A member of the RNA family "Bacterial RNase P class A" from Oryzomicrobium terrae, 441 nucleotides long.
RNA sequence: GAAGUCGGCCAGGCAGCCGCCGCGUGCGCAAGCACGGGGAGGAAAGUCCGGGCUCCACAGAGCAGGAUGCCGGCUAACGGCCGGGCACUAUAACCAAGGUGACGGAGAGUCCCGCCCGAAGGGGUGGGCGGAUCAGGCGGCGGUGCGGCUUGAAGGGCAACCUUCGCGCCGCCUGAUUCCGGCAACAGAGAGAUACCGCCGAUGGCGCCGCACGCCAGGUAAGGGUGAAAUGGUGGGGUAAGAGCCCACCGCGUCCGGGGCCAACGCCGGACGGCACGGUAAACCCCAUCCGGAGCAAGGCCAAAUAGGGGAGCAAUGGCGUGGCUCGCGCUGCUCCCGGGUAGGCUGCUUGAGCGGCGUGGUAACGCGUCCGCCUAGAGGAAUGGCUGCCACGGUGCUUUCGGGCAUCGACAGAACCCGGCUUAUCGGCCGGCUUCCCAC
Numbered sequence: 001g002a003a004g005u006c007g008g009c010c011a012g013g014c015a016g017c018c019g020c021c022g023c024g025u026g027c028g029c030a031a032g033c034a035c036g037g038g039g040a041g042g043a044a045a046g047u048c049c050g051g052g053c054u055c056c057a058c059a060g061a062g063c064a065g066g067a068u069g070c071c072g073g074c075u076a077a078c079g080g081c082c083g084g085g086c087a088c089u090a091u092a093a094c095c096a097a098g099g100u101g102a103c104g105g106a107g108a109g110u111c112c113c114g115c116c117c118g119a120a121g122g123g124g125u126g127g128g129c130g131g132a133u134c135a136g137g138c139g140g141c142g143g144u145g146c147g148g149c150u151u152g153a154a155g156g157g158c159a160a161c162c163u164u165c166g167c168g169c170c171g172c173c174u175g176a177u178u179c180c181g182g183c184a185a186c187a188g189a190g191a192g193a194u195a196c197c198g199c200c201g202a203u204g205g206c207g208c209c210g211c212a213c214g215c216c217a218g219g220u221a222a223g224g225g226u227g228a229a230a231u232g233g234u235g236g237g238g239u240a241a242g243a244g245c246c247c248a249c250c251g252c253g254u255c256c257g258g259g260g261c262c263a264a265c266g267c268c269g270g271a272c273g274g275c276a277c278g279g280u281a282a283a284c285c286c287c288a289u290c291c292g293g294a295g296c297a298a299g300g301c302c303a304a305a306u307a308g309g310g311g312a313g314c315a316a317u318g319g320c321g322u323g324g325c326u327c328g329c330g331c332u333g334c335u336c337c338c339g340g341g342u343a344g345g346c347u348g349c350u351u352g353a354g355c356g357g358c359g360u361g362g363u364a365a366c367g368c369g370u371c372c373g374c375c376u377a378g379a380g381g382a383a384u385g386g387c388u389g390c391c392a393c394g395g396u397g398c399u400u401u402c403g404g405g406c407a408u409c410g411a412c413a414g415a416a417c418c419c420g421g422c423u424u425a426u427c428g429g430c431c432g433g434c435u436u437c438c439c440a441c
Base pairs, nucleotide, nucleotide: 001437002436003435004434005433006432007431008430009429010428011426012391013390014389015388016387017386018385020039021038023036024035025034026033027032044424045423046422048421049420050419051418052417053295054294055293056292060327061326062325063324065291066290067289068288069287070084071083072082073081074080232250233249234248235247236246237245251275252273253272254271255270256269257267259265299347300346301345302344309338310337311336312335313334314333318332319331320330321329322328354374355373356372357371358369359368360367361366
A search with the family's covariance model found it, with a score of 238 bits. NCBI's taxonomy places the organism under Bacteria, Pseudomonadati, Pseudomonadota, Betaproteobacteria, Oryzomicrobium.